[Rfam]
RNA: mir-8517 microRNA precursor family
Nucleotides: 108
Stems, first nucleotide, its partner, number of pairs: 001107006011097012024084004029069004034064001049059004
Number, partner (000 for none) and nucleotide at each position: 001107u002106u003105a004104g005103u006102g007000g008000a009000u010000g011097c012096u013095u014094u015093a016092g017091c018090u019089a020088u021087u022086g023000a024084a025083c026082u027081g028000a029069u030068u031067u032066g033000u034064c035000c036000c037000u038000c039000u040000c041000c042000g043000c044000c045000a046000a047000a048000g049059a050058a051057c052056a053000a054000a055000u056052u057051g058050u059049u060000a061000u062000c063000u064034g065000u066032c067031a068030g069029a070000g071000a072000g073000a074000g075000a076000c077000a078000g079000u080000a081027u082026a083025g084024u085000c086022c087021a088020a089019u090018a091017g092016c093015u094014a095013a096012a097011g098000c099000g100000u101000u102006c103005a104004u105003u106002a107001a108000c